[Rfam]
A member of the RNA family "Salmonella enterica Typhi npcRNA 44" from Edwardsiella ictaluri, 108 nucleotides long. For this family Rfam cites "Experimental identification and characterization of 97 novel npcRNA candidates in Salmonella enterica serovar Typhi" (Chinni et al., Nucleic Acids Res, 2010). Lineage of the source: Bacteria > Pseudomonadota > Enterobacterales > Hafniaceae > Edwardsiella. The family has 34 seed sequences and 474 matches in Rfam 15.1.
RNA sequence: CUUUAACAAUCUGGAACAAGCUGAAAAUUCGAAAAUACUCGGAUUGCUUUUAAUAAAGUGAUCCGAGAGUCUCUCAAAUGCUUACAGCACGAAGUGAAACACCUUCGG
Numbered sequence: 001c002u003u004u005a006a007c008a009a010u011c012u013g014g015a016a017c018a019a020g021c022u023g024a025a026a027a028u029u030c031g032a033a034a035a036u037a038c039u040c041g042g043a044u045u046g047c048u049u050u051u052a053a054u055a056a057a058g059u060g061a062u063c064c065g066a067g068a069g070u071c072u073c074u075c076a077a078a079u080g081c082u083u084a085c086a087g088c089a090c091g092a093a094g095u096g097a098a099a100c101a102c103c104u105u106c107g108g
Base pairs, nucleotide, nucleotide: 020085023083024082027079028078029077038067039066040065041064042063043062044061045060046059047058048057049056050055090107091106092105094103